The record is a 104-nucleotide RNA sequence from Thermosediminibacter oceani, which matches "Purine riboswitch aptamer" in Rfam.
RNA sequence: AAAAUAUUAACGUCUACCCCCUAUAUAAUUCCGGGAAUAUGGCCCGGAAGUCUCUACCGGGUGGCCGUAAACCACCGCAGGCUAUAGGGGAAAGUUUCUUUUCC
Numbered sequence: 001a002a003a004a005u006a007u008u009a010a011c012g013u014c015u016a017c018c019c020c021c022u023a024u025a026u027a028a029u030u031c032c033g034g035g036a037a038u039a040u041g042g043c044c045c046g047g048a049a050g051u052c053u054c055u056a057c058c059g060g061g062u063g064g065c066c067g068u069a070a071a072c073c074a075c076c077g078c079a080g081g082c083u084a085u086a087g088g089g090g091a092a093a094g095u096u097u098c099u100u101u102u103c104c
Stems, first nucleotide, its partner, number of pairs: 018090008029049007058080001060076005
Dot-bracket structure: .................((((((((...(((((((.......)))))))........(.(((((.......)))))...)..))))))))..............

Lineage of the source: Bacteria > Bacillati > Thermosediminibacteraceae > Thermosediminibacter > Thermosediminibacter oceani.